Shown here is a 154-nucleotide sequence from Amborella trichopoda, a member of the family "MIR8565 microRNA precursor family". The organism belongs to Amborella, within Eukaryota. Rfam links the family to the GO terms miRNA-mediated post-transcriptional gene silencing and RISC complex.

[Rfam]
RNA sequence: CCCACACCCAUGUAUGUAGGACCCCAAAUGAUCACCAUUAAAUUUGAUACAGAUCUCUAGAAAAGUUAUCAUAUGGAUGUGGGAUUUGAUUUUUCUAAAGAUUUGUGCUAAAUUUAAUGGUGAUCCUUUUGGGUCCUACACACAUAGGUAUGGG
Numbered sequence: 001c002c003c004a005c006a007c008c009c010a011u012g013u014a015u016g017u018a019g020g021a022c023c024c025c026a027a028a029u030g031a032u033c034a035c036c037a038u039u040a041a042a043u044u045u046g047a048u049a050c051a052g053a054u055c056u057c058u059a060g061a062a063a064a065g066u067u068a069u070c071a072u073a074u075g076g077a078u079g080u081g082g083g084a085u086u087u088g089a090u091u092u093u094u095c096u097a098a099a100g101a102u103u104u105g106u107g108c109u110a111a112a113u114u115u116a117a118u119g120g121u122g123a124u125c126c127u128u129u130u131g132g133g134u135c136c137u138a139c140a141c142a143c144a145u146a147g148g149u150a151u152g153g154g
Base pairs, nucleotide, nucleotide: 002153003152004151006149007148008147010145011144012143013142015140016139017138018137019136020135021134022133023132024131026129027128028127030125031124032123034121035120036119037118038117039116040115041114042113043112044111045110046109048107049106050105051104052103053102054101055100056099058097059096060095061094062093063092064091065090066089067088068087069082070081071080072079073078